[Rfam]
This 73-nucleotide RNA from Tetrahymena pyriformis belongs to the Rfam family "tRNA".
Pairs were carried over by alignment from the consensus structure, which is taken from published work.
RNA sequence: GUGGAUAUAGCUCAAUCGGUAGAGCGUUAGAUUGUGGAUCUAAAGGUCGCGGGUUCGAUUCCUGCUAUUUACC
Numbered sequence: 001g002u003g004g005a006u007a008u009a010g011c012u013c014a015a016u017c018g019g020u021a022g023a024g025c026g027u028u029a030g031a032u033u034g035u036g037g038a039u040c041u042a043a044a045g046g047u048c049g050c051g052g053g054u055u056c057g058a059u060u061c062c063u064g065c066u067a068u069u070u071a072c073c
Base pairs, nucleotide, nucleotide: 001072002071003070004069005068006067007066010025011024012023013022027043028042029041030040031039049065050064051063052062053061